[Rfam]
RNA sequence: ACCCUUUAGUUCCCUUCCCAUUGGAUCUGAACACCGGUCUUGGUCAUAAAAGUAGAAAAAGCAAUACUAAAGCUGGCCUCACAGUGUUUGUGGUCUAUUAUGUAGCAUGUGGGCUAGUUUCAAAAAGGG
Numbered sequence: 001a002c003c004c005u006u007u008a009g010u011u012c013c014c015u016u017c018c019c020a021u022u023g024g025a026u027c028u029g030a031a032c033a034c035c036g037g038u039c040u041u042g043g044u045c046a047u048a049a050a051a052g053u054a055g056a057a058a059a060a061g062c063a064a065u066a067c068u069a070a071a072g073c074u075g076g077c078c079u080c081a082c083a084g085u086g087u088u089u090g091u092g093g094u095c096u097a098u099u100a101u102g103u104a105g106c107a108u109g110u111g112g113g114c115u116a117g118u119u120u121c122a123a124a125a126a127g128g129g
Base pairs, nucleotide, nucleotide: 004055005054007052022042024039025038026037027036073117074116075115076114077113078112079111089107090106091105
Dot-bracket structure: ...((.(..............(.((((........))))..).........).)).................(((((((.........(((.............)))...)))))))............

The record is a 129-nucleotide sequence from Pteropus alecto, which matches "Small nucleolar RNA SNORA61" in Rfam.
It is annotated as an H/ACA-box small nucleolar RNA.
From the family's description: ACA61 is a member of the H/ACA class of snoRNA that guide the sites of modification of uridines to pseudouridines.
Taxonomically the source falls in Pteropus (Eukaryota, Metazoa, Eumetazoa, Chiroptera).
A search with the family's covariance model found it, with a score of 100 bits.